[Rfam]
RNA sequence: AAGCGUGGCAGCCUCUCCUGAUGAUCCUUCUUCCUGAGCGGCUCCAGUGAUGAGCAAACCGAGCCUCUAAGAAGUUGACUGAAGGGGCUGCUUCCCC
Numbered sequence: 001a002a003g004c005g006u007g008g009c010a011g012c013c014u015c016u017c018c019u020g021a022u023g024a025u026c027c028u029u030c031u032u033c034c035u036g037a038g039c040g041g042c043u044c045c046a047g048u049g050a051u052g053a054g055c056a057a058a059c060c061g062a063g064c065c066u067c068u069a070a071g072a073a074g075u076u077g078a079c080u081g082a083a084g085g086g087g088c089u090g091c092u093u094c095c096c097c
Stems, first nucleotide, its partner, number of pairs: 007092009
Rfam assigns this 97-nucleotide RNA sequence from Echinops telfairi to the family "Small nucleolar RNA SNORD125". The sequence is in the family's curated seed alignment. By type it is a C/D-box small nucleolar RNA. The family has 16 seed sequences and 526 matches in Rfam 15.1. The literature on the family includes a 2006 paper in Nucleic Acids Res by Yang et al., "snoSeeker: an advanced computational package for screening of guide and orphan snoRNA genes in the human genome". Gene Ontology terms of the family: RNA processing and nucleolus.